RNA sequence: GUAUUCUGUCCUUCAUUCCACCGGAGUCUGUGUCAUUGGCUAAUCAGAUUUCAGUGGAUUGAAGAAUAAGAGACA
Numbered sequence: 001g002u003a004u005u006c007u008g009u010c011c012u013u014c015a016u017u018c019c020a021c022c023g024g025a026g027u028c029u030g031u032g033u034c035a036u037u038g039g040c041u042a043a044u045c046a047g048a049u050u051u052c053a054g055u056g057g058a059u060u061g062a063a064g065a066a067u068a069a070g071a072g073a074c075a
Stems, first nucleotide, its partner, number of pairs: 011064005019056003023052004028047003
The family of this 75-nucleotide RNA from Denticeps clupeoides is "mir-205 microRNA precursor family". Lineage of the source: Eukaryota > Teleostomi > Euteleostomi > Osteoglossocephalai > Denticeps. The match comes from Rfam's covariance-model search (80 bits). Rfam 15.1 lists 1,154 matches to the family in 646 species.